[Rfam]
RNA sequence: AUGUAUCCAAUGAUGAAAGUAAUUGCGGAUGUUAAGAGUCAAAGGCUCGUUGUCCGAGAGCGCAUGAAACCCAUGUGGAUUAUUCCGCUGCCUUCCUUCUGAAAUUCC
Numbered sequence: 001a002u003g004u005a006u007c008c009a010a011u012g013a014u015g016a017a018a019g020u021a022a023u024u025g026c027g028g029a030u031g032u033u034a035a036g037a038g039u040c041a042a043a044g045g046c047u048c049g050u051u052g053u054c055c056g057a058g059a060g061c062g063c064a065u066g067a068a069a070c071c072c073a074u075g076u077g078g079a080u081u082a083u084u085c086c087g088c089u090g091c092c093u094u095c096c097u098u099c100u101g102a103a104a105u106u107c108c
Stems, first nucleotide, its partner, number of pairs: 003108001026087004
Dot-bracket structure: ..(......................((((......................................................))))....................)
Source information:
Rfam assigns this 108-nucleotide RNA from Lentinula aciculospora to the family "Small nucleolar RNA Z13/snr52". Gene Ontology terms of the family: RNA processing and nucleolus. By type it is a C/D-box small nucleolar RNA.